[Rfam]
RNA sequence: UGCGCAGGGCGUGCUUCAGAACGAUAUUCCCGAAGGACACACCCUUCAGGCGCGCAGUCCGGAUGUAUUGCGCGGUCAUCACCUCGGUCAUCGAGGCUCGGGUCAUCCGUGCAAUGUAGCCCAUGCCGUAAAGGGCAAUGGUCAGGACCGGCAGGAAGAAAUUCUCGAAAGUCGGGUUC
Dot-bracket structure: ....((..((.(..((..(.(......(...........(((...(.(..((.((.((.(((.....))).)).)......(((((.....)))))).))..).)...)))...........)).).).)..).))..))....((((((((.((((....)))).....))))).)))